[Rfam]
RNA sequence: CUGUGCUAGAUGGGGAGGUAGCGGUGCCCUGUAACCUGCAAUCCGCUAUAGCAGGAUUGAUGCCUAUCGACGGUUUGUUGCUGUAGAGUCUGCCCUGUAUAAGUGGCGAUGAUGAUUGGGUCCUGCGCAACGAGAAUCUGUGAACCCCGCCAGGUCUGGAAGGAAGCAACGGUAAGCAGACACUCUCGUGUGCCGCGGGGUAGCCUGACCUGAGUUAACUGUACAGGUUACGUCUGUAGUAACAUAUCAACGAUAGGUGCACAG
Numbered sequence: 001c002u003g004u005g006c007u008a009g010a011u012g013g014g015g016a017g018g019u020a021g022c023g024g025u026g027c028c029c030u031g032u033a034a035c036c037u038g039c040a041a042u043c044c045g046c047u048a049u050a051g052c053a054g055g056a057u058u059g060a061u062g063c064c065u066a067u068c069g070a071c072g073g074u075u076u077g078u079u080g081c082u083g084u085a086g087a088g089u090c091u092g093c094c095c096u097g098u099a100u101a102a103g104u105g106g107c108g109a110u111g112a113u114g115a116u117u118g119g120g121u122c123c124u125g126c127g128c129a130a131c132g133a134g135a136a137u138c139u140g141u142g143a144a145c146c147c148c149g150c151c152a153g154g155u156c157u158g159g160a161a162g163g164a165a166g167c168a169a170c171g172g173u174a175a176g177c178a179g180a181c182a183c184u185c186u187c188g189u190g191u192g193c194c195g196c197g198g199g200g201u202a203g204c205c206u207g208a209c210c211u212g213a214g215u216u217a218a219c220u221g222u223a224c225a226g227g228u229u230a231c232g233u234c235u236g237u238a239g240u241a242a243c244a245u246a247u248c249a250a251c252g253a254u255a256g257g258u259g260c261a262c263a264g
Stems, first nucleotide, its partner, number of pairs: 001264006009058003012030004017025001019023001035055005063257007072248003076244001078242010091230002095226006103219002105216003114210001116208006122199006128190002131188005137180005147172003155164003
RNA: Bacterial large signal recognition particle RNA
Organism: Crassaminicella thermophila